RNA sequence: ACUUCCGAGGAGCGUUGCGACGGGGCCACCCGCCAGGCUCGGAAUUCAAUCGGACGGUAUGCCGUUAGCGCGUUAGCUGCGCGGGCGUGCCGCUCCAUCGAACGGCGCUCACGUCUA
Numbered sequence: 001a002c003u004u005c006c007g008a009g010g011a012g013c014g015u016u017g018c019g020a021c022g023g024g025g026c027c028a029c030c031c032g033c034c035a036g037g038c039u040c041g042g043a044a045u046u047c048a049a050u051c052g053g054a055c056g057g058u059a060u061g062c063c064g065u066u067a068g069c070g071c072g073u074u075a076g077c078u079g080c081g082c083g084g085g086c087g088u089g090c091c092g093c094u095c096c097a098u099c100g101a102a103c104g105g106c107g108c109u110c111a112c113g114u115c116u117a
Stems, first nucleotide, its partner, number of pairs: 003044006021032004
A member of the RNA family "SAH (S-adenosyl-L-homocysteine) riboswitch aptamer" from Trinickia dinghuensis, 117 nucleotides long. It scores 50 bits against the family's covariance model.